[Rfam]
Rfam assigns this 90-nucleotide sequence from Drosophila gunungcola to the family "mir-1002 microRNA precursor family". The base pairs follow the family's consensus structure, which was predicted with RNAalifold. Rfam links the family to the GO terms RISC complex and miRNA-mediated post-transcriptional gene silencing. The organism belongs to elegans subgroup (in: flies), within Eukaryota.
RNA sequence: AAAAAAUCAUGUAUUUAAGUAGUGGAUACAAAAGGCGAUUUACUAAAUAAAUGUUCGCAUUGUAUGCCCUACUUAACUAGCUGAUUUUUC
Numbered sequence: 001a002a003a004a005a006a007u008c009a010u011g012u013a014u015u016u017a018a019g020u021a022g023u024g025g026a027u028a029c030a031a032a033a034g035g036c037g038a039u040u041u042a043c044u045a046a047a048u049a050a051a052u053g054u055u056c057g058c059a060u061u062g063u064a065u066g067c068c069c070u071a072c073u074u075a076a077c078u079a080g081c082u083g084a085u086u087u088u089u090c
Base pairs, nucleotide, nucleotide: 003088004087005086006085007084008083009082012079013078015076016075017074018073019072020071021070022069026065027064028063029062030061031060034058037055